[Rfam]
Notes: Rfam assigns this 180-nucleotide RNA sequence from Saccharicrinis carchari to the family "Bacteroidales-1 6S-Bacteroidales RNA suggested". A reference for the family is Ryan et al. (2020), "A high-resolution transcriptome map identifies small RNA regulation of metabolism in the gut microbe Bacteroides thetaiotaomicron", Nat Commun. It is annotated as a small RNA. Taxonomically the source falls in Saccharicrinis (Bacteria, Bacteroidota, Bacteroidia, Marinilabiliaceae). Rfam's curators write: Bacteroidales-1 was first reported in a comparative genomics-based approach of genome and metagenome sequences from Weinberg et al. 2010 In a high-resolution transcriptome map study of Bacteroides thetaiotaomicron, Ryan et al. 2020 report this sRNA as 6S RNA homologue of Bacteroides, in the study they obtain evidence of small product RNAs (pRNAs) related to 6S function.
RNA sequence: AUCAGUUUGACCUAGAUUGUUAAACUCAACACUAUAAUAGAACCGAGUAAAGCUGUCUGAUCCAAAGGCGGGCCUCACCUUAGGGUUAUCGUUCGCGAUACGGAGGAUUACUGCGGAUCGGAUGCACUCAAAUCCUGUUUACAGGAGUUUAAAUAAUCAACUUCUGAUGCGGCCUUCAUA
Numbered sequence: 001a002u003c004a005g006u007u008u009g010a011c012c013u014a015g016a017u018u019g020u021u022a023a024a025c026u027c028a029a030c031a032c033u034a035u036a037a038u039a040g041a042a043c044c045g046a047g048u049a050a051a052g053c054u055g056u057c058u059g060a061u062c063c064a065a066a067g068g069c070g071g072g073c074c075u076c077a078c079c080u081u082a083g084g085g086u087u088a089u090c091g092u093u094c095g096c097g098a099u100a101c102g103g104a105g106g107a108u109u110a111c112u113g114c115g116g117a118u119c120g121g122a123u124g125c126a127c128u129c130a131a132a133u134c135c136u137g138u139u140u141a142c143a144g145g146a147g148u149u150u151a152a153a154u155a156a157u158c159a160a161c162u163u164c165u166g167a168u169g170c171g172g173c174c175u176u177c178a179u180a
Base pairs, nucleotide, nucleotide: 052125053124056122057121058120059119060118061117062116063115066112067111073106074105075104076103077086078085079084089098090097091096